[Rfam]
RNA sequence: GGGCAUUCUCAGGGCAGGGUGAAAUUCCCUACUGGUGGUAUAUGUUUACAUAAGCCCACGAGCGCCUAUUUUUAUGUGAUGUAGAAUUAGGGUCAGCAGAUUUGGUGAGAUUCCAAAGCCAACAGUUAAAGUCUGGAUGAAAGAGAAUAAAA
Numbered sequence: 001g002g003g004c005a006u007u008c009u010c011a012g013g014g015c016a017g018g019g020u021g022a023a024a025u026u027c028c029c030u031a032c033u034g035g036u037g038g039u040a041u042a043u044g045u046u047u048a049c050a051u052a053a054g055c056c057c058a059c060g061a062g063c064g065c066c067u068a069u070u071u072u073u074a075u076g077u078g079a080u081g082u083a084g085a086a087u088u089a090g091g092g093u094c095a096g097c098a099g100a101u102u103u104g105g106u107g108a109g110a111u112u113c114c115a116a117a118g119c120c121a122a123c124a125g126u127u128a129a130a131g132u133c134u135g136g137a138u139g140a141a142a143g144a145g146a147a148u149a150a151a152a
Base pairs, nucleotide, nucleotide: 005148006147007146008145009144010143017029018028019027031132032131033121034120035059036058037057038056054119055118062097063096101117102116103115104114105113123135124134125133
This 152-nucleotide RNA sequence from [Mannheimia] succiniciproducens belongs to the Rfam family "FMN riboswitch aptamer (RFN element)".
Gene Ontology term of the family: FMN binding.
It is one of the family's seed sequences.
The RFN element is a highly conserved domain that is found frequently in the 5'-untranslated regions of prokaryotic mRNAs that encode for flavin mononucleotide (FMN) biosynthesis and transport proteins.